The record is a 362-nucleotide sequence from Methanosarcina acetivorans, which matches "Archaeal RNase P" in Rfam. Taxonomically the source falls in Methanosarcina acetivorans (Archaea, Methanobacteriati, Methanomicrobia, Methanosarcinales). From the family's description: Ribonuclease P (RNase P) is a ubiquitous endoribonuclease, found in archaea, bacteria and eukarya as well as chloroplasts and mitochondria. Pairs were carried over by alignment from the consensus structure, which is taken from published work.
[Rfam]
RNA sequence: GAGAGAGGCUGGACGGUUGCCGGACCUACUGGUCUGAGGAAAGUCUCCCCACCGUUCCGGACACACGAACAUCUGUAAAGGAUGUCGGGCGAGAGCCCGGGCUCUGGCACAGAAACGAUAACCAUCCCCUGGAAAUGCGAUGAUGUCAUAAGCUGAGGUCACAGGGAGAGUGGAUGAAACGGCGAAUCCUCGUGGGUGCAAGUUGGAAAUCGGGAAAGCACGAGCAGUCUGGACUCAUCCCGGUUGUUUUUGGUAACGCUUAGCCGAAUGCCGUCGAUGCAAGAGUCCCCAGGGACCGUUCCUCCCACUGAUGGGUGGCAGGAAUAUUUGCAUGAACAGAAGGGAGCUUACGUGCCUCACUC
Numbered sequence: 001g002a003g004a005g006a007g008g009c010u011g012g013a014c015g016g017u018u019g020c021c022g023g024a025c026c027u028a029c030u031g032g033u034c035u036g037a038g039g040a041a042a043g044u045c046u047c048c049c050c051a052c053c054g055u056u057c058c059g060g061a062c063a064c065a066c067g068a069a070c071a072u073c074u075g076u077a078a079a080g081g082a083u084g085u086c087g088g089g090c091g092a093g094a095g096c097c098c099g100g101g102c103u104c105u106g107g108c109a110c111a112g113a114a115a116c117g118a119u120a121a122c123c124a125u126c127c128c129c130u131g132g133a134a135a136u137g138c139g140a141u142g143a144u145g146u147c148a149u150a151a152g153c154u155g156a157g158g159u160c161a162c163a164g165g166g167a168g169a170g171u172g173g174a175u176g177a178a179a180c181g182g183c184g185a186a187u188c189c190u191c192g193u194g195g196g197u198g199c200a201a202g203u204u205g206g207a208a209a210u211c212g213g214g215a216a217a218g219c220a221c222g223a224g225c226a227g228u229c230u231g232g233a234c235u236c237a238u239c240c241c242g243g244u245u246g247u248u249u250u251u252g253g254u255a256a257c258g259c260u261u262a263g264c265c266g267a268a269u270g271c272c273g274u275c276g277a278u279g280c281a282a283g284a285g286u287c288c289c290c291a292g293g294g295a296c297c298g299u300u301c302c303u304c305c306c307a308c309u310g311a312u313g314g315g316u317g318g319c320a321g322g323a324a325u326a327u328u329u330g331c332a333u334g335a336a337c338a339g340a341a342g343g344g345a346g347c348u349u350a351c352g353u354g355c356c357u358c359a360c361u362c
Stems, first nucleotide, its partner, number of pairs: 001362003005358005010352002012275006021036005041349003045346005050198004055226001057224001060221001064194005069085005086099005100189002105185001107183002122173003125168001127166005145153002202257002207250003211246001